[Rfam]
This 122-nucleotide sequence from Arabidopsis lyrata belongs to the Rfam family "MIR4227 microRNA precursor family".
The sequence is in the family's curated seed alignment.

RNA sequence: GUUCACACGACAACACAAUUUCAUUUGUGCCAAUCAUUCUAACAAAGUAUACCUCGGUCUCAGUGAUGGCAUACUUUGCUGGAUUGAUUGGUACACAUGAAAUUGUGAUGUUAUCGGCAGUA
Dot-bracket structure: (((.(...((((.(((((((((((.(((((((((((.((((.((((((((.(((((.......))).)).)))))))).)))).))))))))))).))))))))))).)))).).)))....